[Rfam]
RNA sequence: UGCAGUCUUGUCAAAUUCAGUGUUUCCUUGACAAUGGACCGCACUGACCAAAAUGGCUGCUACUGUGAACCUGUAGGCCAUGGGCCCUGGAUCUCUUUUCCAUGGAUUCUGGGGAUACAUUUGUACUACACCU
Numbered sequence: 001u002g003c004a005g006u007c008u009u010g011u012c013a014a015a016u017u018c019a020g021u022g023u024u025u026c027c028u029u030g031a032c033a034a035u036g037g038a039c040c041g042c043a044c045u046g047a048c049c050a051a052a053a054u055g056g057c058u059g060c061u062a063c064u065g066u067g068a069a070c071c072u073g074u075a076g077g078c079c080a081u082g083g084g085c086c087c088u089g090g091a092u093c094u095c096u097u098u099u100c101c102a103u104g105g106a107u108u109c110u111g112g113g114g115a116u117a118c119a120u121u122u123g124u125a126c127u128a129c130a131c132c133u
Stems, first nucleotide, its partner, number of pairs: 002060004018046006025038003073129004077124002085114003089110002

This 133-nucleotide RNA from Salmo trutta belongs to the Rfam family "Small nucleolar RNA SNORA5". Rfam links the family to the GO terms RNA processing and nucleolus. The family's consensus secondary structure was predicted with RNAfold. The match comes from Rfam's covariance-model search (69 bits). It is annotated as an H/ACA-box small nucleolar RNA. Rfam's curators write: ACA5 is a member of the H/ACA class of snoRNA that guide the sites of modification of uridines to pseudouridines.